Record summary: The family of this 531-nucleotide part of an RNA from Halogeometricum borinquense is "Archaeal large subunit ribosomal RNA". It is one of the family's seed sequences. Rfam 15.1 lists 2,955 matches to the family in 1,139 species. Taxonomically the source falls in Halogeometricum borinquense (Archaea, Methanobacteriota, Halobacteria, Halogeometricum).

[Rfam]
RNA sequence: CUACUGUACUGGCUGGUGAAUGGCUCGGCUCGAGAGCCGACGAAGGACGUGCCAAGCUGCGAAAAGCCUGAGGGAGCCGCACGGAGGCUAAGAACUCAGGAUCUCCGAAUGGGAAUCCCUACAACAAUUGCCAACGCGCAAUAGGGAACGUUCCGAAUUGAAACAUCUCAGUAGGAACAGGAACAAAAAGCAAUCCGCGAUGUCGUUAGUAACGGCGAGUAAACGCGACACAGUCCAAACCGAAUCCGCAAGGAAAUGUGGUGUACGGACAAUCUACAACGGAUCACCAACACACGAGAAGUCUCCUGGAACGGAGCGUGAUACAGGGUGACAACCCCGUAUCGUGUGAACGCGAUCCCGAGAUUGCUCCAGAGUAGCGGGGGUUGGAUAUCCCUCGUGAAUCUCGCAGGCAUCGACUGCGAAGACUAAACACUCCUCGAGACCGAUAGCGAACAAGUAGCGCGAGCGAACGCUGAAAAGCACCCCGAAAAGGGCGGUGCAAUAGGGCCUGAAAUCAGUCAGUGAUAGAGC
Number, nucleotide and partner (000 for none) at each position: 001c000002u000003a000004c000005u000006g000007u524008a523009c522010u521011g520012g519013c518014u517015g516016g515017u000018g000019a000020a000021u000022g509023g473024c472025u000026c000027g444028g443029c441030u440031c439032g438033a437034g436035a434036g433037c000038c000039g000040a000041c000042g000043a000044a000045g106046g105047a104048c061049g060050u059051g000052c000053c000054a000055a000056g000057c000058u000059g050060c049061g048062a000063a000064a000065a000066g000067c100068c099069u098070g097071a096072g095073g000074g000075a000076g088077c087078c086079g000080c000081a000082c000083g000084g000085a000086g078087g077088c076089u000090a000091a000092g000093a000094a000095c072096u071097c070098a069099g068100g067101a000102u000103c000104u047105c046106c045107g000108a000109a000110u000111g120112g119113g118114a000115a000116u000117c000118c113119c112120u111121a000122c000123a000124a000125c000126a000127a142128u141129u140130g139131c138132c000133a000134a000135c000136g000137c000138g131139c130140a129141a128142u127143a000144g000145g000146g000147a000148a000149c180150g178151u177152u176153c175154c174155g000156a000157a000158u000159u000160g167161a166162a000163a000164c000165a000166u161167c160168u000169c000170a000171g000172u000173a000174g154175g153176a152177a151178c150179a000180g149181g000182a000183a000184c000185a000186a000187a000188a000189a000190g198191c197192a000193a000194u000195c000196c000197g191198c190199g000200a000201u000202g229203u228204c227205g226206u225207u000208a000209g000210u000211a000212a220213c219214g000215g000216c000217g000218a000219g213220u212221a000222a000223a000224c000225g206226c205227g204228a203229c202230a000231c000232a427233g426234u425235c424236c000237a000238a000239a000240c261241c260242g259243a000244a000245u000246c000247c000248g000249c000250a000251a000252g000253g000254a000255a000256a000257u000258g000259u242260g241261g240262u000263g000264u000265a000266c000267g000268g000269a000270c000271a365272a364273u363274c362275u000276a000277c000278a000279a000280c000281g358282g357283a356284u355285c000286a000287c000288c000289a000290a000291c000292a000293c000294a000295c344296g343297a342298g000299a000300a000301g317302u000303c316304u315305c314306c313307u000308g000309g000310a000311a000312c000313g306314g305315a304316g303317c301318g000319u000320g324321a000322u000323a000324c320325a000326g338327g337328g336329u000330g000331a000332c000333a000334a000335c000336c328337c327338c326339g000340u000341a000342u297343c296344g295345u000346g000347u000348g000349a000350a000351c000352g000353c000354g000355a284356u283357c282358c281359c000360g000361a000362g274363a273364u272365u271366g000367c000368u000369c000370c000371a000372g000373a000374g000375u000376a000377g398378c397379g396380g395381g394382g393383g392384u000385u000386g000387g000388a000389u000390a000391u000392c383393c382394c381395u380396c379397g378398u377399g000400a000401a000402u000403c000404u000405c421406g420407c419408a418409g417410g000411c000412a000413u000414c000415g000416a000417c409418u408419g407420c406421g405422a000423a000424g235425a234426c233427u232428a000429a000430a000431c000432a000433c036434u035435c000436c034437u033438c032439g031440a030441g029442a000443c028444c027445g000446a000447u000448a000449g000450c000451g000452a000453a000454c000455a000456a000457g000458u000459a000460g467461c466462g000463c000464g000465a000466g461467c460468g000469a000470a000471c000472g024473c023474u000475g000476a000477a000478a000479a000480g000481c000482a000483c000484c000485c000486c000487g000488a000489a000490a000491a000492g000493g000494g000495c000496g000497g000498u000499g000500c000501a000502a000503u000504a000505g000506g000507g000508c000509c022510u000511g000512a000513a000514a000515u016516c015517a014518g013519u012520c011521a010522g009523u008524g007525a000526u000527a000528g000529a000530g000531c000